RNA sequence: GUGGGGACAGGGAAGUUCAUUGUGGAGGUUACUAGCUGAGUGUUGAUCAGUCAUCUAAUCCCCUCGGGAAAGGUCUGAGACAAGAGCCAAUCUCCGUCUUCACAGGACAUCAUCUGAACAGGUGAGCGAGCGCACAGGAAAGAUGGGUCAGAAUGCGGCGUUCACGCACAAGACGGUGGAACGCAGCAAAGCGAACCAACUGAUGAGAACUCCGUUACCUUGGAAACACUCGCGGCUGGCCAAUGAGUUCAGUGUGUGAACUGGCACAAGAUGCUAGAACCCAAUUCAGACUACUCUCCUACCAC
Numbered sequence: 001g002u003g004g005g006g007a008c009a010g011g012g013a014a015g016u017u018c019a020u021u022g023u024g025g026a027g028g029u030u031a032c033u034a035g036c037u038g039a040g041u042g043u044u045g046a047u048c049a050g051u052c053a054u055c056u057a058a059u060c061c062c063c064u065c066g067g068g069a070a071a072g073g074u075c076u077g078a079g080a081c082a083a084g085a086g087c088c089a090a091u092c093u094c095c096g097u098c099u100u101c102a103c104a105g106g107a108c109a110u111c112a113u114c115u116g117a118a119c120a121g122g123u124g125a126g127c128g129a130g131c132g133c134a135c136a137g138g139a140a141a142g143a144u145g146g147g148u149c150a151g152a153a154u155g156c157g158g159c160g161u162u163c164a165c166g167c168a169c170a171a172g173a174c175g176g177u178g179g180a181a182c183g184c185a186g187c188a189a190a191g192c193g194a195a196c197c198a199a200c201u202g203a204u205g206a207g208a209a210c211u212c213c214g215u216u217a218c219c220u221u222g223g224a225a226a227c228a229c230u231c232g233c234g235g236c237u238g239g240c241c242a243a244u245g246a247g248u249u250c251a252g253u254g255u256g257u258g259a260a261c262u263g264g265c266a267c268a269a270g271a272u273g274c275u276a277g278a279a280c281c282c283a284a285u286u287c288a289g290a291c292u293a294c295u296c297u298c299c300u301a302c303c304a305c
Base pairs, nucleotide, nucleotide: 001305002304003303004302011299012298013297016260017259018258019257020256025065026064027063028062038052039051041049042048075289076288077287078286079285085237086236087235088234096108097107098106099105110125111124112123113122114121115120126233127232128231129230130229132227146219147218148217261277262276263275264274265273266272
Annotation
Rfam assigns this 305-nucleotide RNA sequence from Sinocyclocheilus anshuiensis to the family "Nuclear RNase P". The source organism's lineage runs through Eukaryota, Bilateria, Teleostei, Cyprininae and Sinocyclocheilus. The family has 116 seed sequences and 3,848 matches in Rfam 15.1.